This 277-nucleotide sequence from a Candidatus Methanophagaceae archaeon belongs to the Rfam family "Group II catalytic intron D1-D4-6". It scores 125 bits against the family's covariance model. Rfam 15.1 lists 1,617 matches to the family in 661 species. Its family is annotated with Group II intron splicing in the Gene Ontology.

RNA sequence: AAAAUCCAACCUGAGGAAAGGUUAGCCGCCACCUCAGAACUGAACCCUGCAUCCAGUCUGGUAACAGGCUGUGGUGAAGCCAGGGGGAAGGGAUACUGGGCUGCAACGCAAGUGAAGGGAUUGAGCCCCGAAAUACACGUUGUCUCGGUGGUCGACGUUGUUCAUUUGACGGAAGGCAGCAUUCUCAUCGCCGAUAGUCCGAAUCUCCAGUCUUGGAAUAUAGCAGGGAGCACUGGGACAUGGCGAGGCGAUGAGAGCCCGACGGGGUCUGAGACCG
Numbered sequence: 001a002a003a004a005u006c007c008a009a010c011c012u013g014a015g016g017a018a019a020g021g022u023u024a025g026c027c028g029c030c031a032c033c034u035c036a037g038a039a040c041u042g043a044a045c046c047c048u049g050c051a052u053c054c055a056g057u058c059u060g061g062u063a064a065c066a067g068g069c070u071g072u073g074g075u076g077a078a079g080c081c082a083g084g085g086g087g088a089a090g091g092g093a094u095a096c097u098g099g100g101c102u103g104c105a106a107c108g109c110a111a112g113u114g115a116a117g118g119g120a121u122u123g124a125g126c127c128c129c130g131a132a133a134u135a136c137a138c139g140u141u142g143u144c145u146c147g148g149u150g151g152u153c154g155a156c157g158u159u160g161u162u163c164a165u166u167u168g169a170c171g172g173a174a175g176g177c178a179g180c181a182u183u184c185u186c187a188u189c190g191c192c193g194a195u196a197g198u199c200c201g202a203a204u205c206u207c208c209a210g211u212c213u214u215g216g217a218a219u220a221u222a223g224c225a226g227g228g229a230g231c232a233c234u235g236g237g238a239c240a241u242g243g244c245g246a247g248g249c250g251a252u253g254a255g256a257g258c259c260c261g262a263c264g265g266g267g268u269c270u271g272a273g274a275c276c277g
Base pairs, nucleotide, nucleotide: 012036013035014034015033016032020030021029022028040090041089045085046084047083049080050076051075052074053073055070056069057068058067059066060065122271123269125268126267127266128265129264130263145262146261147260148259150258151177152176153175156171157170158169159168182257183256184255185254186253187252188251189250190249191248192247